This 138-nucleotide RNA sequence from Enhydra lutris belongs to the Rfam family "U11 spliceosomal RNA".
It scores 70 bits against the family's covariance model.
The family's RNA type in Rfam is spliceosomal small nuclear RNA.

RNA sequence: AAAAAGGACUUCUGCCAUGAGUGGCACAUGUAGGGCAGCUCCAUUGCUCUUCUUGCAGAACUGAUAUCAAGGGAUUUCAGAAACGUAAUUUUUUGGUACCUGGGCAGCUAUUGAUCAUUGGUCCCCAUGCUUGCCCCA
Numbered sequence: 001a002a003a004a005a006g007g008a009c010u011u012c013u014g015c016c017a018u019g020a021g022u023g024g025c026a027c028a029u030g031u032a033g034g035g036c037a038g039c040u041c042c043a044u045u046g047c048u049c050u051u052c053u054u055g056c057a058g059a060a061c062u063g064a065u066a067u068c069a070a071g072g073g074a075u076u077u078c079a080g081a082a083a084c085g086u087a088a089u090u091u092u093u094u095g096g097u098a099c100c101u102g103g104g105c106a107g108c109u110a111u112u113g114a115u116c117a118u119u120g121g122u123c124c125c126c127a128u129g130c131u132u133g134c135c136c137c138a
Base pairs, nucleotide, nucleotide: 010082011081012080013026014025015024016023017022027055028054030052032050033049034048035047036046037045038044058077059076060075062073102136103135104134105133107132109129110128111127113123114122115121116120